[Rfam]
RNA sequence: CUUUUAAGUAAUGACAUGACAAAUGAAGUGUCAUGUCAUCACGCCUUAUCACAGACACCUCAUUGACACAUUAUCACUUUCAAUGGUGUAACAAUGACUUGUCAUUGAUUGGACGUGAUGUUGUAACAUUCCGACUGUCAUAUUAUCACUUAAAGGAA
Numbered sequence: 001c002u003u004u005u006a007a008g009u010a011a012u013g014a015c016a017u018g019a020c021a022a023a024u025g026a027a028g029u030g031u032c033a034u035g036u037c038a039u040c041a042c043g044c045c046u047u048a049u050c051a052c053a054g055a056c057a058c059c060u061c062a063u064u065g066a067c068a069c070a071u072u073a074u075c076a077c078u079u080u081c082a083a084u085g086g087u088g089u090a091a092c093a094a095u096g097a098c099u100u101g102u103c104a105u106u107g108a109u110u111g112g113a114c115g116u117g118a119u120g121u122u123g124u125a126a127c128a129u130u131c132c133g134a135c136u137g138u139c140a141u142a143u144u145a146u147c148a149c150u151u152a153a154a155g156g157a158a
Base pairs, nucleotide, nucleotide: 001156002155003154004153005152006151007150008149009148011146012145013144014143016141017140018139019138020137021136024133025132027130028129029128030127031126033124034123035122037120038119039118040117041116042115043114045112046111048109049108050107051106054103055102056101057100070087071086072085073084074083
Shown here is a 158-nucleotide RNA from Glycine soja, a member of the family "MIR4371 microRNA precursor family".
A search with the family's covariance model found it, with a score of 115 bits.
Lineage of the source: Eukaryota > Streptophytina > Mesangiospermae > Phaseoleae > Glycine subgen. Soja.
Clan: MIR4387 microRNA precursor clan.